[Rfam]
RNA sequence: GUGGCAGUAAGGCUUGCUUUAGGGGUAACACACAGAAUACACUAGUUGUUCUAUCUGCCCCUGGGAAGGUCUGAGACAAAAGUCAUCAACCCUCGAGAAGGGGGCCUCCUGAACAGGAGGGUGGGACACCAGAAACAGGCUUGACCAGGUACCUCAGGCACAGGACCUCCUAUGUGGAGGGAUGCCAUGUAACUGUGUUUCAGUUGGAAAUAGCCCAUGACUAGCUAUGUAAGUUCAAUUUGCAAGGUGGCCUAACAGGCCAUAACUCGAUUCAGACUACUCUACUGCCAC
Dot-bracket structure: ((((..(((....[......(((((.........((((((....).)))))......)))))........(((((.....((((.....(((((.....)))))((((((....))))))(((((..............(..............................................................)..........))))))))).....................]..(((((((...))))))).......))))).......)))..))))
Numbered sequence: 001g002u003g004g005c006a007g008u009a010a011g012g013c014u015u016g017c018u019u020u021a022g023g024g025g026u027a028a029c030a031c032a033c034a035g036a037a038u039a040c041a042c043u044a045g046u047u048g049u050u051c052u053a054u055c056u057g058c059c060c061c062u063g064g065g066a067a068g069g070u071c072u073g074a075g076a077c078a079a080a081a082g083u084c085a086u087c088a089a090c091c092c093u094c095g096a097g098a099a100g101g102g103g104g105c106c107u108c109c110u111g112a113a114c115a116g117g118a119g120g121g122u123g124g125g126a127c128a129c130c131a132g133a134a135a136c137a138g139g140c141u142u143g144a145c146c147a148g149g150u151a152c153c154u155c156a157g158g159c160a161c162a163g164g165a166c167c168u169c170c171u172a173u174g175u176g177g178a179g180g181g182a183u184g185c186c187a188u189g190u191a192a193c194u195g196u197g198u199u200u201c202a203g204u205u206g207g208a209a210a211u212a213g214c215c216c217a218u219g220a221c222u223a224g225c226u227a228u229g230u231a232a233g234u235u236c237a238a239u240u241u242g243c244a245a246g247g248u249g250g251c252c253u254a255a256c257a258g259g260c261c262a263u264a265a266c267u268c269g270a271u272u273c274a275g276a277c278u279a280c281u282c283u284a285c286u287g288c289c290a291c
Stems, first nucleotide, its partner, number of pairs: 001291004007285003014244001021062005035051005040045001071275005081222004090104005105120006121218005140203001247263007
Background: Rfam assigns this 291-nucleotide RNA sequence from Mizuhopecten yessoensis to the family "Nuclear RNase P". Ribonuclease P (RNase P) is a ubiquitous endoribonuclease, found in archaea, bacteria and eukarya as well as chloroplasts and mitochondria. Its best characterised activity is the generation of mature 5'-ends of tRNAs by cleaving the 5'-leader elements of precursor-tRNAs. Cellular RNase Ps are ribonucleoproteins. RNA from bacterial RNase Ps retains its catalytic activity in the absence of the protein subunit, i.e. it is a ribozyme.